[Rfam]
RNA sequence: CGGGAACAACCGACGUUAGGGAAUUCGGCAAGUUAGUCCCGUACGUUCGCAAUAAGGGAUGCCUGCCUCGCAGAGAGGCAGGUCGCAGUGACUCGGGCGCUCCGACUGUCUAGUAACAACAUAGGUGACCGCAAAUCCGCAAGGACUCGUACGGUCACUGAAUCCUGCCCAGUGCAGGUAUCUGAACACCUCGUACAAGAGGACGAAGGACCUGUCAACGGCGGGGGUAACUAUGACCCUCUUAAGGUAGCGUAGUACCUUGCCGCUUCAGUAGCGGCUUGCAUGAAUGGAUCAACGAGAGCGCCACUGUCCCAACGUUGGGCCCGGUGAACUGUACGUUCCAGUGCGGAGUCUGGAGA
Numbered sequence: 001c002g003g004g005a006a007c008a009a010c011c012g013a014c015g016u017u018a019g020g021g022a023a024u025u026c027g028g029c030a031a032g033u034u035a036g037u038c039c040c041g042u043a044c045g046u047u048c049g050c051a052a053u054a055a056g057g058g059a060u061g062c063c064u065g066c067c068u069c070g071c072a073g074a075g076a077g078g079c080a081g082g083u084c085g086c087a088g089u090g091a092c093u094c095g096g097g098c099g100c101u102c103c104g105a106c107u108g109u110c111u112a113g114u115a116a117c118a119a120c121a122u123a124g125g126u127g128a129c130c131g132c133a134a135a136u137c138c139g140c141a142a143g144g145a146c147u148c149g150u151a152c153g154g155u156c157a158c159u160g161a162a163u164c165c166u167g168c169c170c171a172g173u174g175c176a177g178g179u180a181u182c183u184g185a186a187c188a189c190c191u192c193g194u195a196c197a198a199g200a201g202g203a204c205g206a207a208g209g210a211c212c213u214g215u216c217a218a219c220g221g222c223g224g225g226g227g228u229a230a231c232u233a234u235g236a237c238c239c240u241c242u243u244a245a246g247g248u249a250g251c252g253u254a255g256u257a258c259c260u261u262g263c264c265g266c267u268u269c270a271g272u273a274g275c276g277g278c279u280u281g282c283a284u285g286a287a288u289g290g291a292u293c294a295a296c297g298a299g300a301g302c303g304c305c306a307c308u309g310u311c312c313c314a315a316c317g318u319u320g321g322g323c324c325c326g327g328u329g330a331a332c333u334g335u336a337c338g339u340u341c342c343a344g345u346g347c348g349g350a351g352u353c354u355g356g357a358g359a
Stems, first nucleotide, its partner, number of pairs: 001326004010321008019312003036060005045050001061083009084088001096305007103297002107121003124159008132149001136145003162292004167222003172219002174215005181210003189202004223241006242246001262278006340357005